[Rfam]
RNA sequence: GGUUCGAUGCCACGUUGCCGGUAGCCGGAAGUGCUUUGACCGGCGAUGCUAUGAUUGAACCGAUAACAAGCUUUUGUGCGAUUCGCAUUUUAUAGGAACCUGUGAAUUGAUUAUUUCCGUUCAUUCACAGUGCCGUUUUUUGCGAUUACAUUU
Numbered sequence: 001g002g003u004u005c006g007a008u009g010c011c012a013c014g015u016u017g018c019c020g021g022u023a024g025c026c027g028g029a030a031g032u033g034c035u036u037u038g039a040c041c042g043g044c045g046a047u048g049c050u051a052u053g054a055u056u057g058a059a060c061c062g063a064u065a066a067c068a069a070g071c072u073u074u075u076g077u078g079c080g081a082u083u084c085g086c087a088u089u090u091u092a093u094a095g096g097a098a099c100c101u102g103u104g105a106a107u108u109g110a111u112u113a114u115u116u117c118c119g120u121u122c123a124u125u126c127a128c129a130g131u132g133c134c135g136u137u138u139u140u141u142g143c144g145a146u147u148a149c150a151u152u153u
Stems, first nucleotide, its partner, number of pairs: 002060007009052001013048006020041003024034002083145005095134002100130003104126004
Small nucleolar RNA snoR2/U65: a 153-nucleotide sequence from Mikania micrantha. It scores 117 bits against the family's covariance model. Rfam 15.1 lists 908 matches to the family in 230 species. The family's RNA type in Rfam is H/ACA-box small nucleolar RNA. The organism belongs to Mikania, within Eukaryota. The family is grouped with related families in Rfam's "SNORA65 clan". For this family Rfam cites "Localization and processing from a polycistronic precursor of novel snoRNAs in maize" (Shaw et al., J Cell Sci, 1998).